[Rfam]
RNA sequence: GCCACAUGAUGACUAGAGAAGCUGCAGCAGCCUUCGGGCCGUGGCGACCUUUUAUCUAUCACCCUUGUCUGAUGGCC
Numbered sequence: 001g002c003c004a005c006a007u008g009a010u011g012a013c014u015a016g017a018g019a020a021g022c023u024g025c026a027g028c029a030g031c032c033u034u035c036g037g038g039c040c041g042u043g044g045c046g047a048c049c050u051u052u053u054a055u056c057u058a059u060c061a062c063c064c065u066u067g068u069c070u071g072a073u074g075g076c077c
Base pairs, nucleotide, nucleotide: 001076002075003074004073030039031038032036
Shown here is a 77-nucleotide RNA from Oryzias latipes, a member of the family "Small nucleolar RNA SNORD83". It is annotated as a C/D-box small nucleolar RNA. The organism belongs to Oryzias, within Eukaryota. The family's consensus secondary structure was predicted with PFOLD.